[Rfam]
RNA sequence: AUAUUUACCUGGUGUGGGGGACAACGUGAUCACGAAGGCGAUUCCCCCAGGGCGAAGCCCUGCGAUUACCCCUAAUGCGGGGUAAGUCGGACGCGUAAUUUUUGGUAGUGGGGACGCGUACGCGCCGUCCCCU
Numbered sequence: 001a002u003a004u005u006u007a008c009c010u011g012g013u014g015u016g017g018g019g020g021a022c023a024a025c026g027u028g029a030u031c032a033c034g035a036a037g038g039c040g041a042u043u044c045c046c047c048c049a050g051g052g053c054g055a056a057g058c059c060c061u062g063c064g065a066u067u068a069c070c071c072c073u074a075a076u077g078c079g080g081g082g083u084a085a086g087u088c089g090g091a092c093g094c095g096u097a098a099u100u101u102u103u104g105g106u107a108g109u110g111g112g113g114a115c116g117c118g119u120a121c122g123c124g125c126c127g128u129c130c131c132c133u
Stems, first nucleotide, its partner, number of pairs: 012094004016048006023042001025040003049061004063089003066085003070080002110132005116125003
U1 spliceosomal RNA: a 133-nucleotide RNA sequence from Eumeta japonica. Rfam describes the family as follows. U1 is a small nuclear RNA (snRNA) component of the spliceosome (involved in pre-mRNA splicing). Its 5' end forms complementary base pairs with the 5' splice junction, thus defining the 5' donor site of an intron. There are significant differences in sequence and secondary structure between metazoan and yeast U1 snRNAs, the latter being much longer (568 nucleotides as compared to 164 nucleotides in human). Nevertheless, secondary structure predictions suggest that all U1 snRNAs share a 'common core' consisting of helices I, II, the proximal region of III, and IV. This family does not contain the larger yeast sequences. NCBI's taxonomy places the organism under Eukaryota, Eumetazoa, Pterygota, Heteroneura, Eumeta. Rfam classes the family as a spliceosomal small nuclear RNA. The family's consensus secondary structure is taken from published work.